Description:
The family of this 162-nucleotide sequence from Hibiscus syriacus is "U1 spliceosomal RNA". For this family Rfam cites "The uRNA database" (Zwieb, Nucleic Acids Res, 1997).
RNA sequence: UUUAUGACCAUUCGCGGGUCAAUGGGUGAUCAACAAGGCUCAUGGCCUUGGUUAGCAACCUCCAUUGCACUUAGGAGGGGCGCUCGCCUAAGGUCUCCCCAAAGUGAGAUGGCCUAUGUCAUAAUUUGUGGCAGUGGGGGCCUGCGUUUACGCAUCCAUCUU
Numbered sequence: 001u002u003u004a005u006g007a008c009c010a011u012u013c014g015c016g017g018g019u020c021a022a023u024g025g026g027u028g029a030u031c032a033a034c035a036a037g038g039c040u041c042a043u044g045g046c047c048u049u050g051g052u053u054a055g056c057a058a059c060c061u062c063c064a065u066u067g068c069a070c071u072u073a074g075g076a077g078g079g080g081c082g083c084u085c086g087c088c089u090a091a092g093g094u095c096u097c098c099c100c101a102a103a104g105u106g107a108g109a110u111g112g113c114c115u116a117u118g119u120c121a122u123a124a125u126u127u128g129u130g131g132c133a134g135u136g137g138g139g140g141c142c143u144g145c146g147u148u149u150a151c152g153c154a155u156c157c158a159u160c161u162u
Base pairs, nucleotide, nucleotide: 016048017047018046019045020044021043023042024041025040026039027038050088051087053086055083056082059079060078061077062075063074091115092114093113094111096109099106136161137160138159140157143154144153145152146151
Background:
Lineage of the source: Eukaryota > Spermatophyta > Mesangiospermae > Malvoideae > Hibiscus. It is annotated as a spliceosomal small nuclear RNA. From the family's description: U1 is a small nuclear RNA (snRNA) component of the spliceosome (involved in pre-mRNA splicing). Its 5' end forms complementary base pairs with the 5' splice junction, thus defining the 5' donor site of an intron. There are significant differences in sequence and secondary structure between metazoan and yeast U1 snRNAs, the latter being much longer (568 nucleotides as compared to 164 nucleotides in human). Clan: U1 clan.